[Rfam]
RNA sequence: GCCUUGGUCACGCAGACUAAGAACGCCACGUCCUGUGGCAACGUCUGCAUGACCCCCAUCCGGGGGA
Numbered sequence: 001g002c003c004u005u006g007g008u009c010a011c012g013c014a015g016a017c018u019a020a021g022a023a024c025g026c027c028a029c030g031u032c033c034u035g036u037g038g039c040a041a042c043g044u045c046u047g048c049a050u051g052a053c054c055c056c057c058a059u060c061c062g063g064g065g066g067a
Base pairs, nucleotide, nucleotide: 012048013047014046015045016044017043025039026038027037028036029035054066055065056064057063
RNA: Bacillaceae-1 RNA